The family of this 126-nucleotide RNA from Dasypus novemcinctus is "Small nucleolar RNA SNORD22".
Rfam 15.1 lists 1,081 matches to the family in 414 species.
The literature on the family includes a 1994 paper in Science by Tycowski et al., "Requirement for intron-encoded U22 small nucleolar RNA in 18S ribosomal RNA maturation".
The source organism's lineage runs through Eukaryota, Eumetazoa, Chordata, Mammalia and Dasypus.
Pairs were carried over by alignment from the consensus structure, which was predicted with PFOLD.

[Rfam]
RNA sequence: UGCCAGUGAGGAGCAAACAUCUUGUCUUAAUCCCUGUUAUGGCCCCAGAGCCAGUAAUGGUGAACCCACUGGGGCUAACUGGGAGAGAUGAUGAUAACUUAUUCCAUAAGGAACUGUCUGAGGUAC
Numbered sequence: 001u002g003c004c005a006g007u008g009a010g011g012a013g014c015a016a017a018c019a020u021c022u023u024g025u026c027u028u029a030a031u032c033c034c035u036g037u038u039a040u041g042g043c044c045c046c047a048g049a050g051c052c053a054g055u056a057a058u059g060g061u062g063a064a065c066c067c068a069c070u071g072g073g074g075c076u077a078a079c080u081g082g083g084a085g086a087g088a089u090g091a092u093g094a095u096a097a098c099u100u101a102u103u104c105c106a107u108a109a110g111g112a113a114c115u116g117u118c119u120g121a122g123g124u125a126c
Stems, first nucleotide, its partner, number of pairs: 001125004